TPP riboswitch aptamer (THI element): a 108-nucleotide RNA sequence from Mesobacillus boroniphilus. NCBI's taxonomy places the organism under Bacteria, Bacilli, Caryophanales, Bacillaceae, Mesobacillus boroniphilus. Pairs were carried over by alignment from the consensus structure, which is taken from published work.
RNA sequence: UUGGAAAUGUAGGGGAGCCGGUGGUGCCGGCUGAGAAAGUGUCGAUAGAUGCUGACCCUUUAACCUGAUCUGGUUAGUACCAGCGUAGGGAACAUCUUCUGAUAGACG
Numbered sequence: 001u002u003g004g005a006a007a008u009g010u011a012g013g014g015g016a017g018c019c020g021g022u023g024g025u026g027c028c029g030g031c032u033g034a035g036a037a038a039g040u041g042u043c044g045a046u047a048g049a050u051g052c053u054g055a056c057c058c059u060u061u062a063a064c065c066u067g068a069u070c071u072g073g074u075u076a077g078u079a080c081c082a083g084c085g086u087a088g089g090g091a092a093c094a095u096c097u098u099c100u101g102a103u104a105g106a107c108g
Base pairs, nucleotide, nucleotide: 007095008094009093010092011059012058013057014056017031018030019029020028021027038053039052040051041050042049064089065088066087067086070083071082072081073080